The family of this 195-nucleotide RNA sequence from Theileria parva is "U2 spliceosomal RNA".
Rfam describes the family as follows. U2 is a small nuclear RNA (snRNA) component of the spliceosome (involved in pre-mRNA splicing). Complementary binding between U2 snRNA (in an area lying towards the 5' end but 3' to hairpin I) and the branchpoint sequence (BPS) of the intron results the bulging out of an unpaired adenosine, on the BPS, which initiates a nucleophilic attack at the intronic 5' splice site, thus starting the first of two transesterification reactions that mediate splicing.
Taxonomically the source falls in Theileria (Eukaryota, Sar, Apicomplexa, Aconoidasida).
The sequence is in the family's curated seed alignment.
[Rfam]
RNA sequence: AUACCUUCUCGGCCUCUUGGCUAAGAUCAAUUUGUAGUACCUGUUCUUAUCAGCGUGAUAGCUGAUACGGGUCCAACUGGACUCUGUAUUAUCACGGUUAUUUUUCGUUGGGUUAAGAGAUUUUCCGAGCUUGCUCGUCAUUCUCUUAUCGCGUUGCCUUCCCCUUACACUCCCGGGUUGAGCGGUGCACCCACA
Numbered sequence: 001a002u003a004c005c006u007u008c009u010c011g012g013c014c015u016c017u018u019g020g021c022u023a024a025g026a027u028c029a030a031u032u033u034g035u036a037g038u039a040c041c042u043g044u045u046c047u048u049a050u051c052a053g054c055g056u057g058a059u060a061g062c063u064g065a066u067a068c069g070g071g072u073c074c075a076a077c078u079g080g081a082c083u084c085u086g087u088a089u090u091a092u093c094a095c096g097g098u099u100a101u102u103u104u105u106c107g108u109u110g111g112g113u114u115a116a117g118a119g120a121u122u123u124u125c126c127g128a129g130c131u132u133g134c135u136c137g138u139c140a141u142u143c144u145c146u147u148a149u150c151g152c153g154u155u156g157c158c159u160u161c162c163c164c165u166u167a168c169a170c171u172c173c174c175g176g177g178u179u180g181a182g183c184g185g186u187g188c189a190c191c192c193a194c195a
Base pairs, nucleotide, nucleotide: 007026008025009024011022012021013020014019048067049066050065051064052063053062069084070083071082072081073080074079114148115147116146117145118144119143120142126137127136128135129134151188152187153186154185155184156183158180161177162176163175